[Rfam]
RNA sequence: GGGAGCAGGAGGACUGCUGACAGGGUUCGACCCUGAGGAAAGUCCCCUCUCCAUAGUGCAGGUGUCCGAAAGAAUUCGGUGGACAGAAAUGGCCAGGUCAAUGAAGAAGAAACGAACAAAAUCAGGUGUGUACAAUGAAUCGGAAACGACGAGAUUGCUUGAAUUUUGAUGGAACGAUCAACCACACUGGAGCAAGUCCAAAUCGUCUCACUGAUGCUGCACGUUAGAGACAGGUAGGAUGCUAAGUUGAAUGCAGUCACCGAAAGGGAACAGAAAGGGGCUUACUCCCUGCUCCC
Numbered sequence: 001g002g003g004a005g006c007a008g009g010a011g012g013a014c015u016g017c018u019g020a021c022a023g024g025g026u027u028c029g030a031c032c033c034u035g036a037g038g039a040a041a042g043u044c045c046c047c048u049c050u051c052c053a054u055a056g057u058g059c060a061g062g063u064g065u066c067c068g069a070a071a072g073a074a075u076u077c078g079g080u081g082g083a084c085a086g087a088a089a090u091g092g093c094c095a096g097g098u099c100a101a102u103g104a105a106g107a108a109g110a111a112a113c114g115a116a117c118a119a120a121a122u123c124a125g126g127u128g129u130g131u132a133c134a135a136u137g138a139a140u141c142g143g144a145a146a147c148g149a150c151g152a153g154a155u156u157g158c159u160u161g162a163a164u165u166u167u168g169a170u171g172g173a174a175c176g177a178u179c180a181a182c183c184a185c186a187c188u189g190g191a192g193c194a195a196g197u198c199c200a201a202a203u204c205g206u207c208u209c210a211c212u213g214a215u216g217c218u219g220c221a222c223g224u225u226a227g228a229g230a231c232a233g234g235u236a237g238g239a240u241g242c243u244a245a246g247u248u249g250a251a252u253g254c255a256g257u258c259a260c261c262g263a264a265a266g267g268g269a270a271c272a273g274a275a276a277g278g279g280g281c282u283u284a285c286u287c288c289c290u291g292c293u294c295c296c
Stems, first nucleotide, its partner, number of pairs: 001296003005292005010286002012258006021035005040283003044280005049192004054223001061188005066079005080095003084091001096183002102180003117168003120164001122162006140149002196240004205231005
RNA: Archaeal RNase P